[Rfam]
RNA: Group II catalytic intron D1-D4-3
RNA sequence: UCCAUCGUGAGGUGGAAUCUGAAGGAAGCUGUAGGCAAAAUCCUGCACCGACGAACAGAAACCGCAUAUAAGGCAUAUUUGGAGCGGACGAGUUUGCUAGCCAAAACGAAGUCCAACACUACCCGAACUCCAUAGUGUAAAUGCGGCGGUGACAUGGGAUGAAGGUUACUGUU
Numbered sequence: 001u002c003c004a005u006c007g008u009g010a011g012g013u014g015g016a017a018u019c020u021g022a023a024g025g026a027a028g029c030u031g032u033a034g035g036c037a038a039a040a041u042c043c044u045g046c047a048c049c050g051a052c053g054a055a056c057a058g059a060a061a062c063c064g065c066a067u068a069u070a071a072g073g074c075a076u077a078u079u080u081g082g083a084g085c086g087g088a089c090g091a092g093u094u095u096g097c098u099a100g101c102c103a104a105a106a107c108g109a110a111g112u113c114c115a116a117c118a119c120u121a122c123c124c125g126a127a128c129u130c131c132a133u134a135g136u137g138u139a140a141a142u143g144c145g146g147c148g149g150u151g152a153c154a155u156g157g158g159a160u161g162a163a164g165g166u167u168a169c170u171g172u173u
Stems, first nucleotide, its partner, number of pairs: 001016006028173001030171002035166002040160006046151005062146006073138003078134001080132005086114004092107004